[Rfam]
RNA sequence: UUCAACCUCUCGGGGUGCUUCAUCAAAAGAUGUAGCUGAGACAGCAAAUGCUAAACCCGUUGAACUUGAACUGGAUAAUACCAGCGUAGGGAAGAGAAUUGUAUAAACU
Numbered sequence: 001u002u003c004a005a006c007c008u009c010u011c012g013g014g015g016u017g018c019u020u021c022a023u024c025a026a027a028a029g030a031u032g033u034a035g036c037u038g039a040g041a042c043a044g045c046a047a048a049u050g051c052u053a054a055a056c057c058c059g060u061u062g063a064a065c066u067u068g069a070a071c072u073g074g075a076u077a078a079u080a081c082c083a084g085c086g087u088a089g090g091g092a093a094g095a096g097a098a099u100u101g102u103a104u105a106a107a108c109u
Stems, first nucleotide, its partner, number of pairs: 007096004011059004016053001017036003021032003043052003065090004071084004